RNA: SraG RNA
Organism: Pantoea vagans
RNA sequence: CUUUAGUUGCAUCCUCGCGACUAAUGACAAUCUUCAACCGCUCUGGCGGUAAAGCCUCUCAUUAGCCGCGCGAAACGCUGCAAGCAAAGAUCACUCUCAGCAACAAUACAUGAGUUUGGUACGGAUUGCUGCGGAUUGCUCGAAAAAAGGGGCCAUAAAGGCCCCCUUUU
Dot-bracket structure: ((((.((.(((....((((.(((((((...............................)))))))...))))......)))..)))))).....((..........................))........................((((((.....)))))).....